[Rfam]
RNA sequence: UAAAAUGUUUUCUAGGGUUCCGCAAGUUUAUUUGGUCUGGUCCGAGAGAAAACUCACAGCAAUAGCUGUGUCACGGAGGGAUAAAAGCCCGGGAGAU
Numbered sequence: 001u002a003a004a005a006u007g008u009u010u011u012c013u014a015g016g017g018u019u020c021c022g023c024a025a026g027u028u029u030a031u032u033u034g035g036u037c038u039g040g041u042c043c044g045a046g047a048g049a050a051a052a053c054u055c056a057c058a059g060c061a062a063u064a065g066c067u068g069u070g071u072c073a074c075g076g077a078g079g080g081a082u083a084a085a086a087g088c089c090c091g092g093g094a095g096a097u
Base pairs, nucleotide, nucleotide: 007053008052009051010050011049012048015043016042020040021039022037023034024033025032026031055070056069057068058067059066060065072092074095078090079089080088
The family of this 97-nucleotide RNA from Robertmurraya siralis is "Guanidine-I riboswitch aptamer". Rfam's curators write: This family represents a conserved RNA structure found upstream of the ykkC and yxkD genes in Bacillus subtilis and related genes in other bacteria. The function of this family is unclear although it has been suggested that it may function to switch on efflux pumps and detoxification systems in response to harmful environmental molecules. Gene Ontology term of the family: regulation of gene expression. The source organism's lineage runs through Bacteria, Bacillota, Caryophanales, Bacillaceae and Robertmurraya.